[Rfam]
RNA sequence: GUUAUUUGAGGGCAGAACGGGCGGCUGCCACGCCAGCAAUGGUCUUUAAAGAGAUGUAGGGUUGCCAACCUACCGAAUAGC
Numbered sequence: 001g002u003u004a005u006u007u008g009a010g011g012g013c014a015g016a017a018c019g020g021g022c023g024g025c026u027g028c029c030a031c032g033c034c035a036g037c038a039a040u041g042g043u044c045u046u047u048a049a050a051g052a053g054a055u056g057u058a059g060g061g062u063u064g065c066c067a068a069c070c071u072a073c074c075g076a077a078u079a080g081c
Base pairs, nucleotide, nucleotide: 001081002080003079004078005077006076007075008074011029012028013027014026015025020066021065022064023063031051032043033042034041035040056073057072058071059070060069